[Rfam]
RNA sequence: GGGGGGUGUGAUCCCGCACUCACUGGGGGGUGUGCUCCCGUGCUCACUGGGGGGUGUGACCCCACGCUCCCU
Numbered sequence: 001g002g003g004g005g006g007u008g009u010g011a012u013c014c015c016g017c018a019c020u021c022a023c024u025g026g027g028g029g030g031u032g033u034g035c036u037c038c039c040g041u042g043c044u045c046a047c048u049g050g051g052g053g054g055u056g057u058g059a060c061c062c063c064a065c066g067c068u069c070c071c072u
Stems, first nucleotide, its partner, number of pairs: 001071005015058004020053002023050004028045002031042004